[Rfam]
RNA sequence: GGGCUCGUAGUGUAGCUUGGUUUAACACGUCGCCCUGUCACGGCGAAGAUCGCCAGUUCAAAUCUGGUCGAGCCCG
Numbered sequence: 001g002g003g004c005u006c007g008u009a010g011u012g013u014a015g016c017u018u019g020g021u022u023u024a025a026c027a028c029g030u031c032g033c034c035c036u037g038u039c040a041c042g043g044c045g046a047a048g049a050u051c052g053c054c055a056g057u058u059c060a061a062a063u064c065u066g067g068u069c070g071a072g073c074c075c076g
Stems, first nucleotide, its partner, number of pairs: 001075007010028004030046005052068005
RNA: tRNA
Organism: Candidatus Latescibacterota bacterium